[Rfam]
RNA sequence: UACGAUUAGAGCCUGUUUUUGCGUAUAAUUUUAGGGAAUAUGGCCCAAAAGUUUCUACCAGACUGCCGUAAAUGGUCUGACUACGCAGAAGAGUAAUAGAUGG
Numbered sequence: 001u002a003c004g005a006u007u008a009g010a011g012c013c014u015g016u017u018u019u020u021g022c023g024u025a026u027a028a029u030u031u032u033a034g035g036g037a038a039u040a041u042g043g044c045c046c047a048a049a050a051g052u053u054u055c056u057a058c059c060a061g062a063c064u065g066c067c068g069u070a071a072a073u074g075g076u077c078u079g080a081c082u083a084c085g086c087a088g089a090a091g092a093g094u095a096a097u098a099g100a101u102g103g
Stems, first nucleotide, its partner, number of pairs: 018089008029050004034046003059079007